The family of this 93-nucleotide RNA sequence from Peribacillus saganii is "c-di-GMP-I riboswitch aptamer".

[Rfam]
RNA sequence: AAGUGAAAAAGGCAAACUAUGGGAAACCAUGGGACGCAAAGCCAAGGGCCUGAACCGUGUAAUCUUAAGCAUGGAUGGCAGCCGGUUACCACA
Dot-bracket structure: ...........((...((((((....))))))...))..((((..(((((....((((((........))))))..)))..))))))......
Source information: Rfam's curators write: GEMM was predicted in a large-scale screen for bacterial structured RNA regulatory elements. The source organism's lineage runs through Bacteria, Bacilli, Caryophanales, Bacillaceae and Peribacillus.